Shown here is a 222-nucleotide RNA from Bacillus anthracis, a member of the family "T-box leader". The match comes from Rfam's covariance-model search (145 bits). Taxonomically the source falls in Bacillus anthracis (Bacteria, Bacillati, Bacillota, Bacilli). By type it is a cis-regulatory leader. The base pairs follow the family's consensus structure, which is taken from published work.
RNA sequence: AUAAGCGUGUUGAUAGGAAGUAGUAACAAAUGUCGUUUCUUAUAGAGAGUCGAUGGUUGGUGGAAAUCGAUAGAAACAGUUUGUGAAUCCAUCCUGGAAUGGAAUGUGGAAUAUCUUUAUGAUUAGUAAACAUUCCCGGUGAAGAGCCGUUAUUUCUACUUGAGAGGAAGGCGGUAAUGCUUUCAACUAGGGUGGCAACGCGGGUUAACUCCCGUCCCUUUA
Numbered sequence: 001a002u003a004a005g006c007g008u009g010u011u012g013a014u015a016g017g018a019a020g021u022a023g024u025a026a027c028a029a030a031u032g033u034c035g036u037u038u039c040u041u042a043u044a045g046a047g048a049g050u051c052g053a054u055g056g057u058u059g060g061u062g063g064a065a066a067u068c069g070a071u072a073g074a075a076a077c078a079g080u081u082u083g084u085g086a087a088u089c090c091a092u093c094c095u096g097g098a099a100u101g102g103a104a105u106g107u108g109g110a111a112u113a114u115c116u117u118u119a120u121g122a123u124u125a126g127u128a129a130a131c132a133u134u135c136c137c138g139g140u141g142a143a144g145a146g147c148c149g150u151u152a153u154u155u156c157u158a159c160u161u162g163a164g165a166g167g168a169a170g171g172c173g174g175u176a177a178u179g180c181u182u183u184c185a186a187c188u189a190g191g192g193u194g195g196c197a198a199c200g201c202g203g204g205u206u207a208a209c210u211c212c213c214g215u216c217c218c219u220u221u222a
Stems, first nucleotide, its partner, number of pairs: 007100002015095004026084006038074003049071006102135006137149003167184007189219004200215005